Record summary:
A member of the RNA family "Ribosomal protein L10 leader" from Mesobacillus subterraneus, 137 nucleotides long. The match comes from Rfam's covariance-model search (82 bits). NCBI's taxonomy places the organism under Bacteria, Bacillota, Bacilli, Caryophanales, Mesobacillus.

RNA sequence: AAUAGAAUUACAUUUGUACCGCAGACAGCAGGGGCUUCAUGCUUAAUAUCCUGCCGAGGUCAUACGAUAAAGCAAAAUACUUGCUAUUGUAUCCUUCCUCCGUGUCUGCCAUGAUGCGGAGGUUUUUAUUUGAUCGG
Dot-bracket structure: ...........................((((((((.....))......))))))..........................................((((((((((......))))))))))...............
Numbered sequence: 001a002a003u004a005g006a007a008u009u010a011c012a013u014u015u016g017u018a019c020c021g022c023a024g025a026c027a028g029c030a031g032g033g034g035c036u037u038c039a040u041g042c043u044u045a046a047u048a049u050c051c052u053g054c055c056g057a058g059g060u061c062a063u064a065c066g067a068u069a070a071a072g073c074a075a076a077a078u079a080c081u082u083g084c085u086a087u088u089g090u091a092u093c094c095u096u097c098c099u100c101c102g103u104g105u106c107u108g109c110c111a112u113g114a115u116g117c118g119g120a121g122g123u124u125u126u127u128a129u130u131u132g133a134u135c136g137g
Stems, first nucleotide, its partner, number of pairs: 028054006034042002097122010